[Rfam]
RNA: mir-9242 microRNA precursor family
RNA sequence: GGCCUCCCUCUGCGGGGCAAUCGAUUGUGGGACCCCCAGUCGAAUGCCCUGCAGAGGGAGGCC
Numbered sequence: 001g002g003c004c005u006c007c008c009u010c011u012g013c014g015g016g017g018c019a020a021u022c023g024a025u026u027g028u029g030g031g032a033c034c035c036c037c038a039g040u041c042g043a044a045u046g047c048c049c050u051g052c053a054g055a056g057g058g059a060g061g062c063c
Stems, first nucleotide, its partner, number of pairs: 001063019021043007029035002